[Rfam]
RNA sequence: AUAAAAGUUUUCUAGGGUUCCGCGAUAUUUAUAUAUCGGCAGGUCCGAGAGAAAACGCACAGCCUAAAGGUUGUGUCACGGAGGGAUAAAAGCCUGGGAGAU
Numbered sequence: 001a002u003a004a005a006a007g008u009u010u011u012c013u014a015g016g017g018u019u020c021c022g023c024g025a026u027a028u029u030u031a032u033a034u035a036u037c038g039g040c041a042g043g044u045c046c047g048a049g050a051g052a053a054a055a056c057g058c059a060c061a062g063c064c065u066a067a068a069g070g071u072u073g074u075g076u077c078a079c080g081g082a083g084g085g086a087u088a089a090a091a092g093c094c095u096g097g098g099a100g101a102u
Stems, first nucleotide, its partner, number of pairs: 007056006015046002020043002022040001023038006058075007077097001079100001083095003
RNA: Guanidine-I riboswitch aptamer
Organism: Paenibacillus sp. Leaf72